The family of this 102-nucleotide RNA sequence from Mandrillus leucophaeus is "Y RNA". The source organism's lineage runs through Eukaryota, Euteleostomi, Eutheria, Cercopithecidae and Mandrillus.
[Rfam]
RNA sequence: AGCUGGUCCGAGUGCAGUGCGGUUUACAACUGAUUGAUCACAACCAGUUGCAGAUGUCUUUGUUCCUUCUGCACUCCCUCUGCUUCUCUUGACUAGCCUUAA
Numbered sequence: 001a002g003c004u005g006g007u008c009c010g011a012g013u014g015c016a017g018u019g020c021g022g023u024u025u026a027c028a029a030c031u032g033a034u035u036g037a038u039c040a041c042a043a044c045c046a047g048u049u050g051c052a053g054a055u056g057u058c059u060u061u062g063u064u065c066c067u068u069c070u071g072c073a074c075u076c077c078c079u080c081u082g083c084u085u086c087u088c089u090u091g092a093c094u095a096g097c098c099u100u101a102a
Base pairs, nucleotide, nucleotide: 002097003096004095005094006093007092008091010090011089014086016081017080019078021076028064029063030062032060033059

Rfam's curators write: Y RNAs are components of the Ro ribonucleoprotein particle (Ro RNP), in association with Ro60 and La proteins. The Y RNAs and Ro60 and La proteins are well conserved, but the function of the Ro RNP is not known.